[Rfam]
RNA sequence: AUGUUAUCGGGAACAGUGUUUCCCAUGAUGU
Numbered sequence: 001a002u003g004u005u006a007u008c009g010g011g012a013a014c015a016g017u018g019u020u021u022c023c024c025a026u027g028a029u030g031u
Stems, first nucleotide, its partner, number of pairs: 001031007009024005014018001
RNA: Iron response element II
Organism: Triplophysa rosa